Overview:
The family of this 48-nucleotide RNA sequence is "Plastid-ycf3 group II-D1 intron". The base pairs follow the family's consensus structure, which was predicted with LocARNA. The literature on the family includes a 2023 paper in Plant Commun by Richter et al., "Retrograde signaling in plants: A critical review focusing on the GUN pathway and beyond".
RNA sequence: AUUCCUUCUAUUGUGUAUCCUCGAUGAAUGCAGCCUAAAAUGCUUCAA
Numbered sequence: 001a002u003u004c005c006u007u008c009u010a011u012u013g014u015g016u017a018u019c020c021u022c023g024a025u026g027a028a029u030g031c032a033g034c035c036u037a038a039a040a041u042g043c044u045u046c047a048a
Base pairs, nucleotide, nucleotide: 010025011024012023013022032044033043034042